[Rfam]
RNA sequence: AGUGGAACCCCUUCACUACGGAUCGUUCGGCACGUACCUGCCGAUGAAAGGAUGAACAA
Numbered sequence: 001a002g003u004g005g006a007a008c009c010c011c012u013u014c015a016c017u018a019c020g021g022a023u024c025g026u027u028c029g030g031c032a033c034g035u036a037c038c039u040g041c042c043g044a045u046g047a048a049a050g051g052a053u054g055a056a057c058a059a
Stems, first nucleotide, its partner, number of pairs: 009051002012048004027044006
Annotation:
Shown here is a 59-nucleotide sequence from Bifidobacterium actinocoloniiforme, a member of the family "msiK RNA". The organism belongs to Bifidobacterium actinocoloniiforme, within Bacteria. A search with the family's covariance model found it, with a score of 64 bits. Pairs were carried over by alignment from the consensus structure, which is taken from published work.